[Rfam]
Nucleotides: 338
Stems, first nucleotide, its partner, number of pairs: 003040001005038002008035001014030001016028003052106004057101002062096004069090003074081002113329011131308007144180004152172002155169001190220003194217004199212002202210002221295005234288005247266002250263005
Number, partner (000 for none) and nucleotide at each position: 001000u002000u003040u004000u005038u006037c007000a008035c009000g010000c011000u012000g013000u014030a015000c016028c017027u018026u019000g020000u021000g022000a023000u024000a025000c026018a027017a028016g029000u030014u031000a032000a033000a034000a035008g036000c037006g038005a039000u040003a041000u042000a043000a044000a045000g046000g047000a048000a049000u050000u051000u052106u053105g054104c055103c056000g057101g058100a059000u060000a061000g062096c063095a064094c065093a066000u067000a068000c069090a070089c071088g072000c073000a074081g075080c076000a077000a078000u079000g080075g081074c082000g083000u084000a085000a086000g087000a088071c089070g090069u091000a092000u093065u094064g095063u096062g097000a098000a099000a100058u101057c102000a103055g104054g105053c106052a107000u108000u109000u110000a111000g112000c113329g114328g115327g116326c117325u118324g119323c120322g121321g122320g123319u124000u125000g126000c127000a128000g129000c130000c131308u132307g133306g134305a135304c136303g137302a138000c139000a140000a141000g142000a143000c144180g145179g146178g147177a148000u149000a150000g151000a152172c153171u154000u155169u156000c157000u158000c159000u160000g161000g162000u163000a164000a165000c166000u167000c168000a169155g170000u171153a172152g173000u174000g175000g176000u177147u178146c179145c180144c181000c182000c183000u184000c185000g186000u187000a188000a189000a190220a191219g192218c193000g194217c195216u196215g197214u198000u199212u200211u201000a202210u203209c204000c205000g206000u207000a208000u209203g210202a211200a212199a213000a214197a215196c216195a217194g218192g219191c220190u221295a222294c223293c224292g225291a226000g227000a228000u229000u230000u231000u232000g233000c234288g235287c236286c237285c238284c239000u240000u241000a242000g243000c244000a245000g246000g247266c248265g249000a250263c251262a252261a253260c254259c255000g256000u257000g258000a259254g260253g261252u262251u263250g264000a265248c266247g267000g268000c269000u270000u271000u272000g273000c274000g275000a276000u277000g278000a279000g280000a281000c282000a283000c284238g285237g286236g287235g288234c289000c290000a291225u292224c293223g294222g295221u296000u297000g298000u299000u300000c301000c302137u303136c304135g305134u306133c307132c308131a309000g310000c311000g312000u313000u314000a315000c316000c317000a318000u319123g320122c321121c322120c323119g324118u325117a326116g327115c328114u329113u330000u331000g332000u333000c334000a335000c336000u337000a338000a